[Rfam]
RNA: Burkholderia RNA 11
Organism: Pseudothauera nasutitermitis
RNA sequence: GCAGAUGCUUGGCUUCGUGCGCGAGAACCGCACGGUGUUCCUGUCCAUCCUGGGCAUCUCGUGGUUCUGGUUCUACGGCGCGGUGUUCCUCUCGCAGUUUCCCGGCUUCGCCUCCACCGUGCUG
Numbered sequence: 001g002c003a004g005a006u007g008c009u010u011g012g013c014u015u016c017g018u019g020c021g022c023g024a025g026a027a028c029c030g031c032a033c034g035g036u037g038u039u040c041c042u043g044u045c046c047a048u049c050c051u052g053g054g055c056a057u058c059u060c061g062u063g064g065u066u067c068u069g070g071u072u073c074u075a076c077g078g079c080g081c082g083g084u085g086u087u088c089c090u091c092u093c094g095c096a097g098u099u100u101c102c103c104g105g106c107u108u109c110g111c112c113u114c115c116a117c118c119g120u121g122c123u124g
Stems, first nucleotide, its partner, number of pairs: 011050002017046001019044003023040003027036002053123005061115001063113002067105001069101002073097002076094003080090001082089002